Stem loopII regulatory element in POLB: an 81-nucleotide sequence from Phocoena sinus. The match comes from Rfam's covariance-model search (90 bits). Lineage of the source: Eukaryota > Eumetazoa > Vertebrata > Amniota > Phocoena. Rfam classes the family as a cis-regulatory element.
RNA sequence: AGCCCAAUAGGUCUUAAUUUAUUUCUUAACCUUUGCUACGUAAGGGUCUGUGGUGUUUUUAAAUAAUUGUUUCUUCAUGCU
Numbered sequence: 001a002g003c004c005c006a007a008u009a010g011g012u013c014u015u016a017a018u019u020u021a022u023u024u025c026u027u028a029a030c031c032u033u034u035g036c037u038a039c040g041u042a043a044g045g046g047u048c049u050g051u052g053g054u055g056u057u058u059u060u061a062a063a064u065a066a067u068u069g070u071u072u073c074u075u076c077a078u079g080c081u
Base pairs, nucleotide, nucleotide: 009074014062015061016060017059023053024052029047030046031045032044033043034042035041036040